[Rfam]
tRNA: a 72-nucleotide RNA sequence from Saccharomyces cerevisiae.
About the family: Transfer RNA (tRNA) molecules are approximately 80 nucleotides in length.
Rfam classes the family as a transfer RNA.
RNA sequence: UCCGAUGUAGUGUAACGGCUAUCACAUCACGUUCUCACCGUGGAGACCGGGGUUCGACUCCCCGCUUCGGAG
Numbered sequence: 001u002c003c004g005a006u007g008u009a010g011u012g013u014a015a016c017g018g019c020u021a022u023c024a025c026a027u028c029a030c031g032u033u034c035u036c037a038c039c040g041u042g043g044a045g046a047c048c049g050g051g052g053u054u055c056g057a058c059u060c061c062c063c064g065c066u067u068c069g070g071a072g
Base pairs, nucleotide, nucleotide: 001071002070003069004068005067007065010025011024012023027043028042029041030040031039048064049063050062051061052060